[Rfam]
RNA: Small nucleolar RNA SNORD98
Organism: Anolis carolinensis
RNA sequence: GAGUAAUGAUGCUUAAACCUAUUCCAUUACUGAAAUAAUCUGUGGAAAACAAAAACUGAACUC
Numbered sequence: 001g002a003g004u005a006a007u008g009a010u011g012c013u014u015a016a017a018c019c020u021a022u023u024c025c026a027u028u029a030c031u032g033a034a035a036u037a038a039u040c041u042g043u044g045g046a047a048a049a050c051a052a053a054a055a056c057u058g059a060a061c062u063c
Base pairs, nucleotide, nucleotide: 001063002062003061004060
Dot-bracket structure: ((((.......................................................))))